[Rfam]
RNA: Small nucleolar RNA SNORA81
Organism: Trichechus manatus
RNA sequence: UAAUUAAAGUUCAAAUGGAGUGCUAAAAUUGCAGAAACUAGGACUCUGUCUUGGUUUUUGUAAUAAUGCUAGCAGAGUACACACAGGAAGAAAAGUAACUGCACUAGAUCAGAAAAACUGGUGUGGACCUCUUUCUUAUUGUCCAGUGUCCUUUGUCUUAAGAUUGGGAGCGAUAAAA
Dot-bracket structure: ....................(((((..((((..((.((((((((...)))))))).)).....))))..))))).........................(((.((.((...........(...((((..............))))...)..............)).)).)))......